This 114-nucleotide RNA sequence from Thermobifida halotolerans belongs to the Rfam family "ALIL pseudoknot". By type it is a cis-regulatory element. The match comes from Rfam's covariance-model search (58 bits). Rfam 15.1 lists 2,146 matches to the family in 1,098 species. Pairs were carried over by alignment from the consensus structure, which is taken from published work.
RNA sequence: CGGCUUUUUCGCCGCAGGACCCGACCGCCCACACAUCGAGUGGUCGCCUUCAUCGCCGCUCACCGCGCCGAGUUCGGGGUCGAGCCGAUCUGCGCAGUGCUGCGGGUCGCCCCG
Numbered sequence: 001c002g003g004c005u006u007u008u009u010c011g012c013c014g015c016a017g018g019a020c021c022c023g024a025c026c027g028c029c030c031a032c033a034c035a036u037c038g039a040g041u042g043g044u045c046g047c048c049u050u051c052a053u054c055g056c057c058g059c060u061c062a063c064c065g066c067g068c069c070g071a072g073u074u075c076g077g078g079g080u081c082g083a084g085c086c087g088a089u090c091u092g093c094g095c096a097g098u099g100c101u102g103c104g105g106g107u108c109g110c111c112c113c114g
Stems, first nucleotide, its partner, number of pairs: 014028002017025001075114005086109002089106006